[Rfam]
RNA sequence: GGUCAUGAGCGCCAGCGACAAGCCCCGGCUCGCUGGCCGGCAACCCUCCUCCGCGGCGGGGUGCCCCGGGUGACGACCUGGCCGGUGCCGACGUGGCGCCGGCAAGCGCGGACC
Numbered sequence: 001g002g003u004c005a006u007g008a009g010c011g012c013c014a015g016c017g018a019c020a021a022g023c024c025c026c027g028g029c030u031c032g033c034u035g036g037c038c039g040g041c042a043a044c045c046c047u048c049c050u051c052c053g054c055g056g057c058g059g060g061g062u063g064c065c066c067c068g069g070g071u072g073a074c075g076a077c078c079u080g081g082c083c084g085g086u087g088c089c090g091a092c093g094u095g096g097c098g099c100c101g102g103c104a105a106g107c108g109c110g111g112a113c114c
Stems, first nucleotide, its partner, number of pairs: 001078004009038001011037006021030002039065003044061003048056002081103010
Shown here is a 114-nucleotide RNA from Kineococcus radiotolerans, a member of the family "SAM (S-adenosyl methionine) riboswitch aptamer".
Taxonomically the source falls in Kineococcus radiotolerans (Bacteria, Actinomycetota, Actinomycetes, Kineosporiales).